About this RNA
Rfam assigns this 172-nucleotide sequence from Thermacetogenium phaeum to the family "Group II catalytic intron D1-D4-3". The pairing is the family consensus, mapped onto this sequence.

[Rfam]
RNA sequence: UCCUUCGGGAGAUGGAAUCUUAAGGAAGCUGGCGGCGAACCUCCGGCCCGACGAACAGGAACCGCAUAGGAGGCUAGCAGCAGUUGGAUGAGCUUGCGAAACAAAGCGAAGUCCUUUAGCGUGCGAUUGCUGAGAGUAAAUUCGGCGGGUAGAUGGAGGGAAAGUCGACGCA
Numbered sequence: 001u002c003c004u005u006c007g008g009g010a011g012a013u014g015g016a017a018u019c020u021u022a023a024g025g026a027a028g029c030u031g032g033c034g035g036c037g038a039a040c041c042u043c044c045g046g047c048c049c050g051a052c053g054a055a056c057a058g059g060a061a062c063c064g065c066a067u068a069g070g071a072g073g074c075u076a077g078c079a080g081c082a083g084u085u086g087g088a089u090g091a092g093c094u095u096g097c098g099a100a101a102c103a104a105a106g107c108g109a110a111g112u113c114c115u116u117u118a119g120c121g122u123g124c125g126a127u128u129g130c131u132g133a134g135a136g137u138a139a140a141u142u143c144g145g146c147g148g149g150u151a152g153a154u155g156g157a158g159g160g161a162a163a164g165u166c167g168a169c170g171c172a
Stems, first nucleotide, its partner, number of pairs: 001016003005012002030170002035165002040159006046150005062145003066141002073137003078132006086114004092107004
Dot-bracket structure: (((.((....)).))).............((...((...(((((((((((...........(((.((.....(((..((((((..((((..((((........))))...))))............))))))..)))..)).))))))))...))))))....))...))..